[Rfam]
RNA sequence: UUGUGAGGUAGAGGCGCAAAAUGCUAACAGUCCGUGGUGGAGCUAGAGAAAGCGUUGAAACUACUGAGAAGGAGCUUUUGCCGAAGCUUGUAAUAUACUCAGUAUUACUUGCUGGGCCUAUGGUUAAGAGCCAUAGGACUGUCUUGAUAAAUUUCCCCAGUUUAUCAAGUUGUGCUAUCUCAAGU
Numbered sequence: 001u002u003g004u005g006a007g008g009u010a011g012a013g014g015c016g017c018a019a020a021a022u023g024c025u026a027a028c029a030g031u032c033c034g035u036g037g038u039g040g041a042g043c044u045a046g047a048g049a050a051a052g053c054g055u056u057g058a059a060a061c062u063a064c065u066g067a068g069a070a071g072g073a074g075c076u077u078u079u080g081c082c083g084a085a086g087c088u089u090g091u092a093a094u095a096u097a098c099u100c101a102g103u104a105u106u107a108c109u110u111g112c113u114g115g116g117c118c119u120a121u122g123g124u125u126a127a128g129a130g131c132c133a134u135a136g137g138a139c140u141g142u143c144u145u146g147a148u149a150a151a152u153u154u155c156c157c158c159a160g161u162u163u164a165u166c167a168a169g170u171u172g173u174g175c176u177a178u179c180u181c182a183a184g185u
Stems, first nucleotide, its partner, number of pairs: 006180006016081006023075003033066001034064005085113003090108007114140002117137008143169009
RNA: Lysine riboswitch aptamer